[Rfam]
RNA sequence: CGGCUGUAAUGGUCACAAACCAAGAAGACCUCUAUUUCCCAGAUCUCUUCACCCAUCUCGUCGCAAGGCAACUGCCAGCGGUGCCCAGUUCGAACAUGGCGGUGGUCCCCCACUCGUGCAGGUAACUCACGAUGCUGGUGGGUCCUUAAGCAAUGAAGAUAACUUCUUGAGGGAGGUUUCACUCUGCAGAGAGAUCUUCACCGUGGUGUGGCGGUAUUGGAUUACACUUGCUGUGUGGUUUGGGUGUGGUGUUUGGGUUGAGUGUCGACUUAUUUUUUUGGUUUUU
Numbered sequence: 001c002g003g004c005u006g007u008a009a010u011g012g013u014c015a016c017a018a019a020c021c022a023a024g025a026a027g028a029c030c031u032c033u034a035u036u037u038c039c040c041a042g043a044u045c046u047c048u049u050c051a052c053c054c055a056u057c058u059c060g061u062c063g064c065a066a067g068g069c070a071a072c073u074g075c076c077a078g079c080g081g082u083g084c085c086c087a088g089u090u091c092g093a094a095c096a097u098g099g100c101g102g103u104g105g106u107c108c109c110c111c112a113c114u115c116g117u118g119c120a121g122g123u124a125a126c127u128c129a130c131g132a133u134g135c136u137g138g139u140g141g142g143u144c145c146u147u148a149a150g151c152a153a154u155g156a157a158g159a160u161a162a163c164u165u166c167u168u169g170a171g172g173g174a175g176g177u178u179u180c181a182c183u184c185u186g187c188a189g190a191g192a193g194a195u196c197u198u199c200a201c202c203g204u205g206g207u208g209u210g211g212c213g214g215u216a217u218u219g220g221a222u223u224a225c226a227c228u229u230g231c232u233g234u235g236u237g238g239u240u241u242g243g244g245u246g247u248g249g250u251g252u253u254u255g256g257g258u259u260g261a262g263u264g265u266c267g268a269c270u271u272a273u274u275u276u277u278u279u280g281g282u283u284u285u286u
Stems, first nucleotide, its partner, number of pairs: 002014003017284008035262003039257002042254002045251001047249002050246006058074001060072002063069002076233005081227003085220005090214003094209004099204004104145001107142003110138003114132005120127002146150001154200007164193005173184003